[Rfam]
RNA: RAGATH-18 RNA
RNA sequence: CCUAUCUAGUGUUACAGCAAACCAAAGUAGCUUAGACAAAAUGGGACACUAUGAAGUAGGAA
Number, nucleotide and partner (000 for none) at each position: 001c060002c059003u058004a057005u056006c000007u000008a000009g049010u048011g047012u046013u045014a000015c000016a000017g000018c000019a000020a000021a000022c044023c043024a042025a000026a000027g000028u000029a000030g037031c000032u000033u000034a000035g000036a000037c030038a000039a000040a000041a000042u024043g023044g022045g013046a012047c011048a010049c009050u000051a000052u000053g000054a000055a000056g005057u004058a003059g002060g001061a000062a000